[Rfam]
RNA sequence: UCCGCCCGGGUCCGUGGUUGCGUCGCUCAGGCGCCCGGACGCCGGGUGCCUGGACGGCUAGCCGAUGCCAGUCGCAGGCGAAGCGGCCCACGUAACCCGAGUCCCCUCGCCGGGGCACGGGGAUCACGGUGCGGCUUAGAGAUAAGUCCUGCCCCGGACCAGCCGUCAGAUGCGGCGGGUCACCGGGAGAGGGUCGCGUGGCACCAAGCCGCAACACCCCAGCAGGCGGCUGUGGGGAAGAAGACCAGGUCGGCCGGGCGGA
Numbered sequence: 001u002c003c004g005c006c007c008g009g010g011u012c013c014g015u016g017g018u019u020g021c022g023u024c025g026c027u028c029a030g031g032c033g034c035c036c037g038g039a040c041g042c043c044g045g046g047u048g049c050c051u052g053g054a055c056g057g058c059u060a061g062c063c064g065a066u067g068c069c070a071g072u073c074g075c076a077g078g079c080g081a082a083g084c085g086g087c088c089c090a091c092g093u094a095a096c097c098c099g100a101g102u103c104c105c106c107u108c109g110c111c112g113g114g115g116c117a118c119g120g121g122g123a124u125c126a127c128g129g130u131g132c133g134g135c136u137u138a139g140a141g142a143u144a145a146g147u148c149c150u151g152c153c154c155c156g157g158a159c160c161a162g163c164c165g166u167c168a169g170a171u172g173c174g175g176c177g178g179g180u181c182a183c184c185g186g187g188a189g190a191g192g193g194u195c196g197c198g199u200g201g202c203a204c205c206a207a208g209c210c211g212c213a214a215c216a217c218c219c220c221a222g223c224a225g226g227c228g229g230c231u232g233u234g235g236g237g238a239a240g241a242a243g244a245c246c247a248g249g250u251c252g253g254c255c256g257g258g259c260g261g262a
Stems, first nucleotide, its partner, number of pairs: 001262009012253003015247005065233003068078001070136007087129002092124001096120002127240001148226005153187005191219004198212005
RNA: raiA RNA
Organism: Nocardioides terrae